[Rfam]
RNA sequence: UGCCUAAAAUUGUGUAAAUCCACUCACCUCAAUUCAAGAUGAGAAGCAAUUCUUCAUUGGUAGCAAAUGGUUAUCCAUUAAGUGGAGGAAAUAUUAG
Numbered sequence: 001u002g003c004c005u006a007a008a009a010u011u012g013u014g015u016a017a018a019u020c021c022a023c024u025c026a027c028c029u030c031a032a033u034u035c036a037a038g039a040u041g042a043g044a045a046g047c048a049a050u051u052c053u054u055c056a057u058u059g060g061u062a063g064c065a066a067a068u069g070g071u072u073a074u075c076c077a078u079u080a081a082g083u084g085g086a087g088g089a090a091a092u093a094u095u096a097g
Stems, first nucleotide, its partner, number of pairs: 010022001012020001052087004056078002059075006
A member of the RNA family "Plastid-rps12 3UTR RNA" from Cynara cardunculus, 97 nucleotides long. The organism belongs to Cynara cardunculus subsp. cardunculus, within Eukaryota. From the family's description: Plastid rpl20 is a non-coding RNA (ncRNA) recognised in plastids. It was found in the three prime untranslated region (3UTR) of rps12 gene, its 3UTR location sugest a role in transcript maduration. A search with the family's covariance model found it, with a score of 89 bits. A reference for the family is Richter et al. (2023), "Retrograde signaling in plants: A critical review focusing on the GUN pathway and beyond", Plant Commun.